RNA sequence: UUUGCUCCCUUUCAGAAAUGCGACUUCAGAGGAAAAGAAACUAACCAGGAUUCCUCAGUAAUGGCGAGUGAACAGGGAAGAGCCCAGCCGAAUCACCUGUCAGCGGUGGGUCGGGGGAUAUGUGGCUAGAGAAGACCCACUCCCCGGCGUGGCUCAUGCGGGACCCAAGCCCUUCUGAUCGAGGCCCAGCCCGUGGACGGUGUGAAGCGGGUAGCAGCCCAGCGCGCCGCCCGGGUCUUCCUGCAGUCGGGUUGCUUGGGAAUACAACCCAAAGCGGGUGGUAAACUCCAUCUAAGGCUAAUACUUGCAGGAGACCUAUAGUCAACAAGUACCUUAAGGGAAAGUUGAAAAGAACUUUGAAGAGAGAGUUCAAGAGGGCGUGAAACCGUUAAGAGGUAAA
Numbered sequence: 001u002u003u004g005c006u007c008c009c010u011u012u013c014a015g016a017a018a019u020g021c022g023a024c025u026u027c028a029g030a031g032g033a034a035a036a037g038a039a040a041c042u043a044a045c046c047a048g049g050a051u052u053c054c055u056c057a058g059u060a061a062u063g064g065c066g067a068g069u070g071a072a073c074a075g076g077g078a079a080g081a082g083c084c085c086a087g088c089c090g091a092a093u094c095a096c097c098u099g100u101c102a103g104c105g106g107u108g109g110g111u112c113g114g115g116g117g118a119u120a121u122g123u124g125g126c127u128a129g130a131g132a133a134g135a136c137c138c139a140c141u142c143c144c145c146g147g148c149g150u151g152g153c154u155c156a157u158g159c160g161g162g163a164c165c166c167a168a169g170c171c172c173u174u175c176u177g178a179u180c181g182a183g184g185c186c187c188a189g190c191c192c193g194u195g196g197a198c199g200g201u202g203u204g205a206a207g208c209g210g211g212u213a214g215c216a217g218c219c220c221a222g223c224g225c226g227c228c229g230c231c232c233g234g235g236u237c238u239u240c241c242u243g244c245a246g247u248c249g250g251g252u253u254g255c256u257u258g259g260g261a262a263u264a265c266a267a268c269c270c271a272a273a274g275c276g277g278g279u280g281g282u283a284a285a286c287u288c289c290a291u292c293u294a295a296g297g298c299u300a301a302u303a304c305u306u307g308c309a310g311g312a313g314a315c316c317u318a319u320a321g322u323c324a325a326c327a328a329g330u331a332c333c334u335u336a337a338g339g340g341a342a343a344g345u346u347g348a349a350a351a352g353a354a355c356u357u358u359g360a361a362g363a364g365a366g367a368g369u370u371c372a373a374g375a376g377g378g379c380g381u382g383a384a385a386c387c388g389u390u391a392a393g394a395g396g397u398a399a400a
Base pairs, nucleotide, nucleotide: 008031009029010028013020014019041048042047052078053076054075055074061069062068081299082298083297084296087126088125089124090123092121093120094117096115097114098113099112101110131240132239133238134237135236136235138234151228152227153226155224159222161220162219164217169185171184172183173182174181192196200208249270250269251268252267253266254265276293277292278291279290280289332339333338355366356365357364358363
RNA: Eukaryotic large subunit ribosomal RNA, nucleotides 1 to 400